Annotation
The record is a 94-nucleotide RNA from Hipposideros armiger, which matches "Vault RNA" in Rfam. By type it is a non-coding RNA gene. On this family, see Stadler et al., Mol Biol Evol 2009: "Evolution of Vault RNAs". The source organism's lineage runs through Eukaryota, Metazoa, Theria, Eutheria and Hipposideros. The match comes from Rfam's covariance-model search (72 bits).
[Rfam]
RNA sequence: GGACUGGCUAUAGUUCAGCGGUUCCUUCGUUUCAAGACUAUUAACCACCCUCUCGAGGGCAGUUCGAGACCCGCGGGCGCUCUCCGGUCCUUUU
Numbered sequence: 001g002g003a004c005u006g007g008c009u010a011u012a013g014u015u016c017a018g019c020g021g022u023u024c025c026u027u028c029g030u031u032u033c034a035a036g037a038c039u040a041u042u043a044a045c046c047a048c049c050c051u052c053u054c055g056a057g058g059g060c061a062g063u064u065c066g067a068g069a070c071c072c073g074c075g076g077g078c079g080c081u082c083u084c085c086g087g088u089c090c091u092u093u094u
Base pairs, nucleotide, nucleotide: 002089003088004087005086006085007084013078014077015076016075018074019073020072021071026068027067028066029065
Dot-bracket structure: .((((((.....((((.((((....((((...................................))))..)))))))).....)))))).....